[Rfam]
Nucleotides: 084
Stems, first nucleotide, its partner, number of pairs: 002083006
Number, partner (000 for none) and nucleotide at each position: 001000a002083c003082c004081a005080a006079g007078c008000a009000g010000u011000g012000a013000u014000g015000a016000u017000g018000g019000c020000g021000a022000c023000u024000a025000u026000a027000u028000g029000u030000c031000a032000c033000u034000u035000u036000c037000c038000u039000g040000a041000a042000a043000a044000u045000g046000a047000g048000u049000g050000a051000u052000g053000g054000g055000u056000u057000u058000u059000a060000a061000g062000u063000c064000a065000c066000u067000a068000c069000c070000u071000c072000a073000u074000c075000u076000g077000a078007g079006c080005u081004u082003g083002g084000u
This 84-nucleotide sequence from Mastacembelus armatus belongs to the Rfam family "Small nucleolar RNA SNORD11B". It is annotated as a C/D-box small nucleolar RNA. The base pairs follow the family's consensus structure, which was predicted with WAR. The family has 37 seed sequences and 733 matches in Rfam 15.1. Its family is annotated with RNA processing and nucleolus in the Gene Ontology.